[Rfam]
Shown here is a 76-nucleotide RNA from Zea mays, a member of the family "Small nucleolar RNA snoR53Y".
Lineage of the source: Eukaryota > Viridiplantae > Magnoliopsida > Mesangiospermae > Zea.
Rfam links the family to the GO terms RNA processing and nucleolus.
The match comes from Rfam's covariance-model search (52 bits).
Its Rfam clan is "snoR53 clan".
The family's consensus secondary structure was predicted with WAR.
It is annotated as a C/D-box small nucleolar RNA.

RNA sequence: GUUCCCAGUGAUGGUAUACAUUAACCAUGCUAAUACUGAUGUCCUUUGACUAGUAAAACAAUGUGUUAAGGAAAUA
Number, nucleotide and partner (000 for none) at each position: 001g075002u074003u073004c000005c071006c000007a000008g000009u000010g000011a000012u000013g000014g000015u000016a000017u000018a000019c000020a000021u000022u000023a000024a000025c000026c000027a000028u000029g000030c000031u000032a000033a000034u000035a000036c000037u000038g000039a000040u000041g000042u000043c000044c000045u000046u000047u000048g000049a000050c000051u000052a000053g000054u000055a000056a000057a000058a000059c000060a000061a000062u000063g000064u000065g000066u000067u000068a000069a000070g000071g005072a000073a003074a002075u001076a000